[Rfam]
RNA: Makes More Granules Regulator RNA (mmgR)
RNA sequence: UGCCGCUGCCCCUCGGGGCGUUUCCUCCCUAGACUUGGCCGUCCUCAGGGGCGGCCCUCUUUCUAGGAGAC
Numbered sequence: 001u002g003c004c005g006c007u008g009c010c011c012c013u014c015g016g017g018g019c020g021u022u023u024c025c026u027c028c029c030u031a032g033a034c035u036u037g038g039c040c041g042u043c044c045u046c047a048g049g050g051g052c053g054g055c056c057c058u059c060u061u062u063c064u065a066g067g068a069g070a071c
Stems, first nucleotide, its partner, number of pairs: 008019004037056008